[Rfam]
RNA sequence: UUUGCCCCGUGAGACAGAGCUCUGGCUGUUGUGCCAUUGUUGUGCUAUAAGUGGGCAGAAAGGAAACGGCUUGUGAUCGACCCUGAUGUUCUGAACAGUGGACCAGGGGGUUGGAACAAGGCCGGAUAAA
Numbered sequence: 001u002u003u004g005c006c007c008c009g010u011g012a013g014a015c016a017g018a019g020c021u022c023u024g025g026c027u028g029u030u031g032u033g034c035c036a037u038u039g040u041u042g043u044g045c046u047a048u049a050a051g052u053g054g055g056c057a058g059a060a061a062g063g064a065a066a067c068g069g070c071u072u073g074u075g076a077u078c079g080a081c082c083c084u085g086a087u088g089u090u091c092u093g094a095a096c097a098g099u100g101g102a103c104c105a106g107g108g109g110g111u112u113g114g115a116a117c118a119a120g121g122c123c124g125g126a127u128a129a130a
Stems, first nucleotide, its partner, number of pairs: 002058005008051001010049002013046001015044001018041002023036004065127001067124003070120004078113003082109003088103004
The record is a 130-nucleotide RNA sequence from Triplophysa tibetana, which matches "Small nucleolar RNA SNORA17" in Rfam. For this family Rfam cites "Mapping to nucleotide resolution of pseudouridine residues in large subunit ribosomal RNAs from representative eukaryotes, prokaryotes, archaebacteria, mitochondria and chloroplasts" (Ofengand and Bakin, J Mol Biol, 1997). Its Rfam clan is "SNORA17 clan". snoRNA ACA 17 belongs to the H/ACA family of snoRNAs and is predicted to guide pseudouridylation of the 28S rRNA at positions U4659 and U4598. It shares the same host gene together with ACA43. Its family is annotated with RNA processing and nucleolus in the Gene Ontology.